A member of the RNA family "small Cajal body-specific RNA 17" from Castor canadensis, 131 nucleotides long. Its family is annotated with Cajal body, nucleolus and RNA processing in the Gene Ontology. For this family Rfam cites "Guide RNAs with 5' Caps and Novel Box C/D snoRNA-like Domains for Modification of snRNAs in Metazoa" (Tycowski et al., Curr Biol, 2004). Rfam 15.1 lists 262 matches to the family in 128 species.
RNA sequence: UGCAUCAGGAUCCUCCAUGCAGCUCUGUGUGAGCCUGCAGUAUUUUCCUUAUAUGUCAGGUCUCAUUGUCGGCCUAGAGUCUGAGAGAAUUAUGAAAACAUGGCAGGCAAAGUGACUCUGGGGACCUGGCA
Numbered sequence: 001u002g003c004a005u006c007a008g009g010a011u012c013c014u015c016c017a018u019g020c021a022g023c024u025c026u027g028u029g030u031g032a033g034c035c036u037g038c039a040g041u042a043u044u045u046u047c048c049u050u051a052u053a054u055g056u057c058a059g060g061u062c063u064c065a066u067u068g069u070c071g072g073c074c075u076a077g078a079g080u081c082u083g084a085g086a087g088a089a090u091u092a093u094g095a096a097a098a099c100a101u102g103g104c105a106g107g108c109a110a111a112g113u114g115a116c117u118c119u120g121g122g123g124a125c126c127u128g129g130c131a
Stems, first nucleotide, its partner, number of pairs: 001131003006128004011124005022117001024115002056084006063077001068073001